This 131-nucleotide RNA sequence from Odobenus rosmarus belongs to the Rfam family "Small nucleolar RNA SNORA70". It scores 124 bits against the family's covariance model. From the family's description: snoRNA U70 seems to be exclusive to mammals and is a member of the H/ACA class of snoRNA which contain H (ANANNA) and ACA box motifs. The literature on the family includes a 2000 paper in IUBMB Life by Charette and Gray, "Pseudouridine in RNA: what, where, how, and why". The source organism's lineage runs through Eukaryota, Vertebrata, Amniota, Laurasiatheria and Odobenus rosmarus.
[Rfam]
RNA sequence: UUAAAAACUAAGCCGACUGUGCUCUUUGUCCAUGGGGGCCCAGUGUGCCAUGGCUGCAAACAGUAGCCUCCUUGGUAGUGUAUGCAGCCUGUUGAUUGUAUGGGUUGCCCUAAGGGACCUUGGAGACAGCC
Numbered sequence: 001u002u003a004a005a006a007a008c009u010a011a012g013c014c015g016a017c018u019g020u021g022c023u024c025u026u027u028g029u030c031c032a033u034g035g036g037g038g039c040c041c042a043g044u045g046u047g048c049c050a051u052g053g054c055u056g057c058a059a060a061c062a063g064u065a066g067c068c069u070c071c072u073u074g075g076u077a078g079u080g081u082a083u084g085c086a087g088c089c090u091g092u093u094g095a096u097u098g099u100a101u102g103g104g105u106u107g108c109c110c111u112a113a114g115g116g117a118c119c120u121u122g123g124a125g126a127c128a129g130c131c
Base pairs, nucleotide, nucleotide: 001047016044017043018042019041022038023037024036025035074119075118076117085107086106087105088104089103090102